[Rfam]
RNA sequence: GGUCAAGAGUGCCAGCGCGAAGACCCGGCUAGCUGGCCGGCAACCCUCCUGCACGGUGGGGUGCCCCCGGGGAAAGACCCGGCCGCGGUGAAGCGGCAAGCGUGCUCC
Numbered sequence: 001g002g003u004c005a006a007g008a009g010u011g012c013c014a015g016c017g018c019g020a021a022g023a024c025c026c027g028g029c030u031a032g033c034u035g036g037c038c039g040g041c042a043a044c045c046c047u048c049c050u051g052c053a054c055g056g057u058g059g060g061g062u063g064c065c066c067c068c069g070g071g072g073a074a075a076g077a078c079c080c081g082g083c084c085g086c087g088g089u090g091a092a093g094c095g096g097c098a099a100g101c102g103u104g105c106u107c108c
Base pairs, nucleotide, nucleotide: 001079002078003077004076009038011037012036013035014034015033016032021030022029039065040064041063044061045060046059048056049055082097083096084095085094086093

A member of the RNA family "SAM (S-adenosyl methionine) riboswitch aptamer" from Streptomyces harbinensis, 108 nucleotides long.
On this family, see Weinberg et al., RNA 2008: "The aptamer core of SAM-IV riboswitches mimics the ligand-binding site of SAM-I riboswitches".
Taxonomically the source falls in Streptomyces (Bacteria, Actinomycetes, Kitasatosporales, Streptomycetaceae).
Rfam's curators write: SAM-IV is a mRNA element that regulates gene expression via direct sensing of S-adenosylmethionine (SAM or AdoMet). SAM-IV riboswitches share conserved nucleotide positions with the previously described SAM-I riboswitches sequence analysis and molecular recognition experiments suggest that SAM-I and SAM-IV riboswitches share similar ligand binding sites, but have different scaffolds.